The record is a 52-nucleotide sequence from Agrobacterium bohemicum, which matches "ffh sRNA" in Rfam.
It is annotated as a small RNA.
A reference for the family is Meyer et al. (2009), "Identification of candidate structured RNAs in the marine organism 'Candidatus Pelagibacter ubique'", BMC Genomics.
A search with the family's covariance model found it, with a score of 50 bits.

[Rfam]
RNA sequence: GAUCCCGGAGGCAAACAUCCGACAGCGCGAAGCGCCCUCGGGUGCUUUUUGG
Numbered sequence: 001g002a003u004c005c006c007g008g009a010g011g012c013a014a015a016c017a018u019c020c021g022a023c024a025g026c027g028c029g030a031a032g033c034g035c036c037c038u039c040g041g042g043u044g045c046u047u048u049u050u051g052g
Stems, first nucleotide, its partner, number of pairs: 016044007025035004